[Rfam]
RNA sequence: AAAUAAAAAACCCUGCAGAAUAUUCUGCAGGGCCCUUCCAUAUCCUUUUAUUCCGGACAGAAGGCAAAGGGAGAGGAGAAACCGGAGGAAGAACUUAUGGGGAAACGUAAGUCUUCUCCGCGG
Dot-bracket structure: ..........(((((((((....)))))))))(((((.....(((.........))).........)))))...........((((.((((.(((((..........)))))))))))))...